The record is an 80-nucleotide RNA sequence from Lymphocryptovirus macacinegamma10, which matches "mir-BART15 microRNA precursor family" in Rfam. Lineage of the source: Viruses > Heunggongvirae > Peploviricota > Herviviricetes > Lymphocryptovirus macacinegamma10. On this family, see Riley et al., J Virol 2010: "Comprehensive analysis of Rhesus lymphocryptovirus microRNA expression".
[Rfam]
RNA sequence: UGUGCCACUUAGAGGGAAAUAGCGGCCAACUGAAGUCUAAUAACAAAGGUCAGUGGGCCUGUUUCCCUCAUAGAGACACA
Numbered sequence: 001u002g003u004g005c006c007a008c009u010u011a012g013a014g015g016g017a018a019a020u021a022g023c024g025g026c027c028a029a030c031u032g033a034a035g036u037c038u039a040a041u042a043a044c045a046a047a048g049g050u051c052a053g054u055g056g057g058c059c060u061g062u063u064u065c066c067c068u069c070a071u072a073g074a075g076a077c078a079c080a
Base pairs, nucleotide, nucleotide: 001080002079003078004077006075008073009072012069013068014067015066016065017064018063019062020061021060024059025058026057027056029054030053031052032051033050036049037048038047